RNA sequence: AGGUCAAUGAUGUGAAUGAUACUCCUACUGUCAUAGACCUUUGGGGAGGAUUUCUUAAGAGAGCUGAGGCCU
Number, nucleotide and partner (000 for none) at each position: 001a000002g071003g070004u069005c068006a000007a000008u000009g000010a000011u000012g000013u000014g000015a000016a000017u000018g000019a000020u000021a000022c000023u000024c000025c000026u000027a000028c000029u000030g000031u000032c000033a000034u000035a000036g000037a000038c000039c000040u000041u000042u000043g000044g000045g000046g000047a000048g000049g000050a000051u000052u000053u000054c000055u000056u000057a000058a000059g000060a000061g000062a000063g000064c000065u000066g000067a000068g005069g004070c003071c002072u000
Record summary: The family of this 72-nucleotide RNA sequence from Zizania palustris is "Small nucleolar RNA Z168/Z174". The source organism's lineage runs through Eukaryota, Mesangiospermae, Liliopsida, commelinids and Zizania. For this family Rfam cites "The high diversity of snoRNAs in plants: identification and comparative study of 120 snoRNA genes from Oryza sativa" (Chen et al., Nucleic Acids Res, 2003). Rfam links the family to the GO terms RNA processing and nucleolus. A search with the family's covariance model found it, with a score of 49 bits. The family's RNA type in Rfam is C/D-box small nucleolar RNA.